[Rfam]
RNA sequence: UCGAGGGUAAGUCUAGAAUUCCGCUAGUUUUGAACUAUUCAUGAUUGGUAAAAGUUCACUACUAGCAGAACUCUGAUUUCCCCCUGA
Numbered sequence: 001u002c003g004a005g006g007g008u009a010a011g012u013c014u015a016g017a018a019u020u021c022c023g024c025u026a027g028u029u030u031u032g033a034a035c036u037a038u039u040c041a042u043g044a045u046u047g048g049u050a051a052a053a054g055u056u057c058a059c060u061a062c063u064a065g066c067a068g069a070a071c072u073c074u075g076a077u078u079u080c081c082c083c084c085u086g087a
Stems, first nucleotide, its partner, number of pairs: 003085001005083003009079003013075001016072001019070003023066006031058006038052002
mir-726 microRNA precursor family: an 87-nucleotide sequence from Hucho hucho. Pairs were carried over by alignment from the consensus structure, which was predicted with RNAalifold. It scores 78 bits against the family's covariance model. Taxonomically the source falls in Hucho (Eukaryota, Chordata, Gnathostomata, Teleostomi).